[Rfam]
Rfam assigns this 98-nucleotide sequence from Nicotiana attenuata to the family "Small nucleolar RNA snoR109". Lineage of the source: Eukaryota > Streptophyta > Gunneridae > lamiids > Nicotiana.
RNA sequence: UGGCUGUGUAGCUAUAUGAAUAAUAUUUGACUUGAGAAGUUAAGUGGCUGGUUGUGGUAAAUCUAAUGACAUAUUUGCUUACCGAACUUCUUACAUUU
Numbered sequence: 001u002g003g004c005u006g007u008g009u010a011g012c013u014a015u016a017u018g019a020a021u022a023a024u025a026u027u028u029g030a031c032u033u034g035a036g037a038a039g040u041u042a043a044g045u046g047g048c049u050g051g052u053u054g055u056g057g058u059a060a061a062u063c064u065a066a067u068g069a070c071a072u073a074u075u076u077g078c079u080u081a082c083c084g085a086a087c088u089u090c091u092u093a094c095a096u097u098u
Stems, first nucleotide, its partner, number of pairs: 034092008046079003050075003054070002057067001
Dot-bracket structure: .................................((((((((....(((.(((.((.(.........).))..))).))).....))))))))......